Shown here is a 111-nucleotide RNA from Shimia marina, a member of the family "Guanidine-I riboswitch aptamer". NCBI's taxonomy places the organism under Bacteria, Alphaproteobacteria, Rhodobacterales, Roseobacteraceae, Shimia.

[Rfam]
RNA sequence: GUGCAGGGGGCUUAGGGUUCCGUUGCCUUGAGAGAGGCAAGUCUGGUCCAAGAAGCGCCACCUGACCGGCAAAUUCCGGCAGGCACACGGCGGGGCAAAAUCCCGGGAGGU
Numbered sequence: 001g002u003g004c005a006g007g008g009g010g011c012u013u014a015g016g017g018u019u020c021c022g023u024u025g026c027c028u029u030g031a032g033a034g035a036g037g038c039a040a041g042u043c044u045g046g047u048c049c050a051a052g053a054a055g056c057g058c059c060a061c062c063u064g065a066c067c068g069g070c071a072a073a074u075u076c077c078g079g080c081a082g083g084c085a086c087a088c089g090g091c092g093g094g095g096c097a098a099a100a101u102c103c104c105g106g107g108a109g110g111u
Base pairs, nucleotide, nucleotide: 007059008058010056011055012054015049016048020046021045022043023040024039025038026037027036028035061083062082063081064080066078086106088109092104093103094102